[Rfam]
RNA sequence: UGAUGACAUUCUCCGGAAUCGCUGCACUGCUAUGAUGAAAGUGCAUUUGAACCCUUUUCCAUCUGACGGCUGGGCCUUCCUU
Numbered sequence: 001u002g003a004u005g006a007c008a009u010u011c012u013c014c015g016g017a018a019u020c021g022c023u024g025c026a027c028u029g030c031u032a033u034g035a036u037g038a039a040a041g042u043g044c045a046u047u048u049g050a051a052c053c054c055u056u057u058u059c060c061a062u063c064u065g066a067c068g069g070c071u072g073g074g075c076c077u078u079c080c081u082u
Stems, first nucleotide, its partner, number of pairs: 002082002005079002
Dot-bracket structure: .((.((.......................................................................)).))
Shown here is an 82-nucleotide RNA from Muntiacus reevesi, a member of the family "Small nucleolar RNA MBII-202". Rfam 15.1 lists 745 matches to the family in 452 species. A reference for the family is Huttenhofer et al. (2001), "RNomics: an experimental approach that identifies 201 candidates for novel, small, non-messenger RNAs in mouse", EMBO J. The base pairs follow the family's consensus structure, which was predicted with PFOLD. Gene Ontology terms of the family: nucleolus and RNA processing.